[Rfam]
RNA sequence: AGGGGUCACUAGGGGUGCCUCCCGUUGAGGGGGCUGAGAUCAGACCCUCCGAACCUGAUCCGGGUCAUGCCGGCGCAGGGAAGUGAGAAGAGACACUC
Dot-bracket structure: .....(((((((((.((((((........))))).......)..)))).....((((..((((......))))..))))..)))))............
RNA: TPP riboswitch aptamer (THI element)
Organism: Synechococcus sp. LTW-R